Shown here is an 83-nucleotide RNA sequence from Mikania micrantha, a member of the family "Small nucleolar RNA U54". Lineage of the source: Eukaryota > Embryophyta > Tracheophyta > Gunneridae > Mikania. The family's RNA type in Rfam is C/D-box small nucleolar RNA. From the family's description: U54 is a C/D box small nucleolar RNA, which acts as a methylation guide for 18S ribosomal RNA in plants. The literature on the family includes a 2003 paper in Nucleic Acids Res by Chen et al., "The high diversity of snoRNAs in plants: identification and comparative study of 120 snoRNA genes from Oryza sativa". Rfam 15.1 lists 614 matches to the family in 206 species. Clan: U54 clan.

RNA sequence: AGCUCUAUGAUUAAAUGCCUUUUUAGGCAAUAUACGCUAUUCAGAUUGUUAAUAUGAAGGGAAAAUAAAAUUUAAUGAGAGCU
Numbered sequence: 001a002g003c004u005c006u007a008u009g010a011u012u013a014a015a016u017g018c019c020u021u022u023u024u025a026g027g028c029a030a031u032a033u034a035c036g037c038u039a040u041u042c043a044g045a046u047u048g049u050u051a052a053u054a055u056g057a058a059g060g061g062a063a064a065a066u067a068a069a070a071u072u073u074a075a076u077g078a079g080a081g082c083u
Stems, first nucleotide, its partner, number of pairs: 001083005